[Rfam]
RNA: Xanthomonas sRNA sX9
Organism: Xanthomonas oryzae
RNA sequence: AUGUACGAGCGGGACAUGUCGCACCGAGCACCGUCCGCGCCCAUCUGACAGCUGCUCGCUACGUUGUGUUGGUC
Numbered sequence: 001a002u003g004u005a006c007g008a009g010c011g012g013g014a015c016a017u018g019u020c021g022c023a024c025c026g027a028g029c030a031c032c033g034u035c036c037g038c039g040c041c042c043a044u045c046u047g048a049c050a051g052c053u054g055c056u057c058g059c060u061a062c063g064u065u066g067u068g069u070u071g072g073u074c
Stems, first nucleotide, its partner, number of pairs: 002016003006012001020033002022028001045072006